[Rfam]
RNA sequence: UUUUGCGCGCGAGGAGCACUGCAGGGGAGCGGACGGCGCGUGAGAGUGCGGGGAAGAAUGUGCACCUGAGCGAGCGUGGGGGUGCGGGGGUGUGUGUGCGUGUGCAGGGGUGUGUGUGCGUGUGCGCAGCGCGUGGCGCUGCUGGAAUCCCGCCUACACGUUGAUCUUAUUCGAUCGGGCCGGGGGCGGCCGCCCGGCCCGAGAUGAGAAGACCCCUCCCGCGAAGCCCGCGGGCGCUGUGCGGGGCAGAGUUGGAGGCCGCAGCCGGCUCGCCCGGCGCUCAGAGGUGAUGAGUCGAUCAGAUAGAUGAGGCCGCGGGGCGGGUCCGCGCUGGCCCGAGCCCCCGGCCCAUGAGUAUCGAGGCGAUUCUGAUCUGA
Numbered sequence: 001u002u003u004u005g006c007g008c009g010c011g012a013g014g015a016g017c018a019c020u021g022c023a024g025g026g027g028a029g030c031g032g033a034c035g036g037c038g039c040g041u042g043a044g045a046g047u048g049c050g051g052g053g054a055a056g057a058a059u060g061u062g063c064a065c066c067u068g069a070g071c072g073a074g075c076g077u078g079g080g081g082g083u084g085c086g087g088g089g090g091u092g093u094g095u096g097u098g099c100g101u102g103u104g105c106a107g108g109g110g111u112g113u114g115u116g117u118g119c120g121u122g123u124g125c126g127c128a129g130c131g132c133g134u135g136g137c138g139c140u141g142c143u144g145g146a147a148u149c150c151c152g153c154c155u156a157c158a159c160g161u162u163g164a165u166c167u168u169a170u171u172c173g174a175u176c177g178g179g180c181c182g183g184g185g186g187c188g189g190c191c192g193c194c195c196g197g198c199c200c201g202a203g204a205u206g207a208g209a210a211g212a213c214c215c216c217u218c219c220c221g222c223g224a225a226g227c228c229c230g231c232g233g234g235c236g237c238u239g240u241g242c243g244g245g246g247c248a249g250a251g252u253u254g255g256a257g258g259c260c261g262c263a264g265c266c267g268g269c270u271c272g273c274c275c276g277g278c279g280c281u282c283a284g285a286g287g288u289g290a291u292g293a294g295u296c297g298a299u300c301a302g303a304u305a306g307a308u309g310a311g312g313c314c315g316c317g318g319g320g321c322g323g324g325u326c327c328g329c330g331c332u333g334g335c336c337c338g339a340g341c342c343c344c345c346g347g348c349c350c351a352u353g354a355g356u357a358u359c360g361a362g363g364c365g366a367u368u369c370u371g372a373u374c375u376g377a
Stems, first nucleotide, its partner, number of pairs: 045140005050066002053063001055061001082093004098127003101122005170210003175202004180197003184194001186193002230262002234260001236259003242255001264278005282376004292369006311349004318344002
RNA: Small Cajal body-specific RNA 2
Organism: Gopherus agassizii